[Rfam]
The family of this 398-nucleotide part of an RNA from Cylindrodendrum hubeiense is "Ascomycota telomerase RNA". Its Rfam clan is "Telomerase clan". The pairing is the family consensus, mapped onto this sequence. It scores 364 bits against the family's covariance model. Rfam classes the family as a non-coding RNA gene. For this family Rfam cites "The common ancestral core of vertebrate and fungal telomerase RNAs" (Qi et al., Nucleic Acids Res, 2013).

RNA sequence: AAUCACACAGAAGGAGCAGUUCGGUCAAGUCUCGAAAAAUUUUCGGCAUGCAUUGUGUUACGUCGACUUCUGGUGAGGUCAUGUCGGCGAAGGCUCCAAAUUAUGAUGGAAUCGACAGCUCGCGAACAGCUUCUUCCUUGGCAUCCUCUCUUUUUCCGAAGCGACGCUUGCGGUUGACGUCUAAAGCAGCACCGGGACCCAUCUCGAGUUGGAGUCAAAGUUUCGUGCUUGUCUGGUGCUGCCAAGGGCCCGGCCAUGGGUUAAGUGGAAGAUCCCGAGAGCCAAAGUCGAAGUUGGGUUGUUGUCUUUGGAUCUCUUGGACAGGCCGCAUUGGAUGAGGCAGUCCCGGUUGUCCUCUCGCCAGAAAUGGUGUGGAGGGCAACCCCCCACAAGCGAGG
Numbered sequence: 001a002a003u004c005a006c007a008c009a010g011a012a013g014g015a016g017c018a019g020u021u022c023g024g025u026c027a028a029g030u031c032u033c034g035a036a037a038a039a040u041u042u043u044c045g046g047c048a049u050g051c052a053u054u055g056u057g058u059u060a061c062g063u064c065g066a067c068u069u070c071u072g073g074u075g076a077g078g079u080c081a082u083g084u085c086g087g088c089g090a091a092g093g094c095u096c097c098a099a100a101u102u103a104u105g106a107u108g109g110a111a112u113c114g115a116c117a118g119c120u121c122g123c124g125a126a127c128a129g130c131u132u133c134u135u136c137c138u139u140g141g142c143a144u145c146c147u148c149u150c151u152u153u154u155u156c157c158g159a160a161g162c163g164a165c166g167c168u169u170g171c172g173g174u175u176g177a178c179g180u181c182u183a184a185a186g187c188a189g190c191a192c193c194g195g196g197a198c199c200c201a202u203c204u205c206g207a208g209u210u211g212g213a214g215u216c217a218a219a220g221u222u223u224c225g226u227g228c229u230u231g232u233c234u235g236g237u238g239c240u241g242c243c244a245a246g247g248g249c250c251c252g253g254c255c256a257u258g259g260g261u262u263a264a265g266u267g268g269a270a271g272a273u274c275c276c277g278a279g280a281g282c283c284a285a286a287g288u289c290g291a292a293g294u295u296g297g298g299u300u301g302u303u304g305u306c307u308u309u310g311g312a313u314c315u316c317u318u319g320g321a322c323a324g325g326c327c328g329c330a331u332u333g334g335a336u337g338a339g340g341c342a343g344u345c346c347c348g349g350u351u352g353u354c355c356u357c358u359c360g361c362c363a364g365a366a367a368u369g370g371u372g373u374g375g376a377g378g379g380c381a382a383c384c385c386c387c388c389a390c391a392a393g394c395g396a397g398g
Base pairs, nucleotide, nucleotide: 196216197215198214199212200211201210218230219229220228221227